[Rfam]
Annotation:
A member of the RNA family "DUF3268 RNA", 119 nucleotides long.
RNA sequence: GGCAGGGGCUUGCGCUCAGGCAUACAGUCUCUUCGGAAGAGCUCCCGGAGUCAGACCCUCCCUGCGGGCGGGGAACUGUAUCGGAUUUCGCGCAAUGAGCGAUCCACACGGCGCAAGUC
Numbered sequence: 001g002g003c004a005g006g007g008g009c010u011u012g013c014g015c016u017c018a019g020g021c022a023u024a025c026a027g028u029c030u031c032u033u034c035g036g037a038a039g040a041g042c043u044c045c046c047g048g049a050g051u052c053a054g055a056c057c058c059u060c061c062c063u064g065c066g067g068g069c070g071g072g073g074a075a076c077u078g079u080a081u082c083g084g085a086u087u088u089c090g091c092g093c094a095a096u097g098a099g100c101g102a103u104c105c106a107c108a109c110g111g112c113g114c115a116a117g118u119c
Stems, first nucleotide, its partner, number of pairs: 007119010025078004031050006056072003060068003083105003088102004
Dot-bracket structure: ......((((((((((........((((..((((((........)))))).....(((.(((...))).)))..))))....(((..((((.......)))))))....))))))))))